This 600-nucleotide part of an RNA from Lewinellaceae bacterium SD302 belongs to the Rfam family "Bacterial large subunit ribosomal RNA".
The family is grouped with related families in Rfam's "LSU clan".
NCBI's taxonomy places the organism under Bacteria, Pseudomonadati, Bacteroidota, Saprospirales, Lewinellaceae.
[Rfam]
RNA sequence: AAGUAUCGGUGAAGAUGCCGAUUACCCGCAACGGGACGAAAAGACCCCGUGAACCUUUACUACAGCUUCACAUUGUAUUAGGCUAUAAGAUGUGUAGGAUAGGUGGGAGACUAUGAAGCGGCGGCGCCAGUCGUUGUGGAGUCAUCCUUGAAAUACCACCCUUCUUAUAGUUUGAUACUAACUUUCCGAAAAGAGAGGACAUUGUGUGGUGGGUAGUUUGACUGGGGUGGUCGCCUCCUAAAGUGUAACGGAGGCUCGCAAAGGUACCCUCAGCAUGGUUGGUAAUCAUGCGAAGAGCGUAUGAGUACAAGGGUGCUUGACUGAGAGAGCGACAGCUCGACCAGGUGCGAAAGCAGGCUCAAGUGAUCCGGUGGUUCCGAAUGGAAGGGCCAUCGCUCAAAGGAUAAAAGGUACUCCGGGGAUAACAGGCUGAUCUCCCCCAAGAGCUCACAUCGACGGGGAGGUUUGGCACCUCGAUGUCGGCUCGUCACAUCCUGGGGCUGAAGAAGGUCCCAAGGGUUGGGCUGUUCGCCCAUUAAAGUGGCACGCGAGCUGGGUUCAGAACGUCGCAAGACAGUUCGGUCUCUAUCUGUUGCGGGC
Numbered sequence: 001a002a003g004u005a006u007c008g009g010u011g012a013a014g015a016u017g018c019c020g021a022u023u024a025c026c027c028g029c030a031a032c033g034g035g036a037c038g039a040a041a042a043g044a045c046c047c048c049g050u051g052a053a054c055c056u057u058u059a060c061u062a063c064a065g066c067u068u069c070a071c072a073u074u075g076u077a078u079u080a081g082g083c084u085a086u087a088a089g090a091u092g093u094g095u096a097g098g099a100u101a102g103g104u105g106g107g108a109g110a111c112u113a114u115g116a117a118g119c120g121g122c123g124g125c126g127c128c129a130g131u132c133g134u135u136g137u138g139g140a141g142u143c144a145u146c147c148u149u150g151a152a153a154u155a156c157c158a159c160c161c162u163u164c165u166u167a168u169a170g171u172u173u174g175a176u177a178c179u180a181a182c183u184u185u186c187c188g189a190a191a192a193g194a195g196a197g198g199a200c201a202u203u204g205u206g207u208g209g210u211g212g213g214u215a216g217u218u219u220g221a222c223u224g225g226g227g228u229g230g231u232c233g234c235c236u237c238c239u240a241a242a243g244u245g246u247a248a249c250g251g252a253g254g255c256u257c258g259c260a261a262a263g264g265u266a267c268c269c270u271c272a273g274c275a276u277g278g279u280u281g282g283u284a285a286u287c288a289u290g291c292g293a294a295g296a297g298c299g300u301a302u303g304a305g306u307a308c309a310a311g312g313g314u315g316c317u318u319g320a321c322u323g324a325g326a327g328a329g330c331g332a333c334a335g336c337u338c339g340a341c342c343a344g345g346u347g348c349g350a351a352a353g354c355a356g357g358c359u360c361a362a363g364u365g366a367u368c369c370g371g372u373g374g375u376u377c378c379g380a381a382u383g384g385a386a387g388g389g390c391c392a393u394c395g396c397u398c399a400a401a402g403g404a405u406a407a408a409a410g411g412u413a414c415u416c417c418g419g420g421g422a423u424a425a426c427a428g429g430c431u432g433a434u435c436u437c438c439c440c441c442a443a444g445a446g447c448u449c450a451c452a453u454c455g456a457c458g459g460g461g462a463g464g465u466u467u468g469g470c471a472c473c474u475c476g477a478u479g480u481c482g483g484c485u486c487g488u489c490a491c492a493u494c495c496u497g498g499g500g501c502u503g504a505a506g507a508a509g510g511u512c513c514c515a516a517g518g519g520u521u522g523g524g525c526u527g528u529u530c531g532c533c534c535a536u537u538a539a540a541g542u543g544g545c546a547c548g549c550g551a552g553c554u555g556g557g558u559u560c561a562g563a564a565c566g567u568c569g570c571a572a573g574a575c576a577g578u579u580c581g582g583u584c585u586c587u588a589u590c591u592g593u594u595g596c597g598g599g600c
Stems, first nucleotide, its partner, number of pairs: 005022005025599008034591003038586002046420004051416002053412005059217004066209002069206004075178016092161001102160005109143003118137008182197005220232004233255006256401001258358002264316006270296002273291006297306002321344003327338003346355003369395007377388002429470003433467001434464007444454002481556001482554004486548001487545005494519002497514006521535005562580004566575003